[Rfam]
The family of this 102-nucleotide sequence from Brevibacillus borstelensis is "Purine riboswitch aptamer".
RNA sequence: AAAAGGUAAAUAAGGAAGGUUCGUAUAUUCUCGGGAAUAGGGCUCGGGAGUUUCUACGAGGUCGCCGCAAACGACCUGGCUACGAACAAGACAUCAACGGGG
Numbered sequence: 001a002a003a004a005g006g007u008a009a010a011u012a013a014g015g016a017a018g019g020u021u022c023g024u025a026u027a028u029u030c031u032c033g034g035g036a037a038u039a040g041g042g043c044u045c046g047g048g049a050g051u052u053u054c055u056a057c058g059a060g061g062u063c064g065c066c067g068c069a070a071a072c073g074a075c076c077u078g079g080c081u082a083c084g085a086a087c088a089a090g091a092c093a094u095c096a097a098c099g100g101g102g
Stems, first nucleotide, its partner, number of pairs: 019087007029049007059077006
The match comes from Rfam's covariance-model search (76 bits). NCBI's taxonomy places the organism under Bacteria, Bacillota, Bacilli, Brevibacillus, Brevibacillus borstelensis.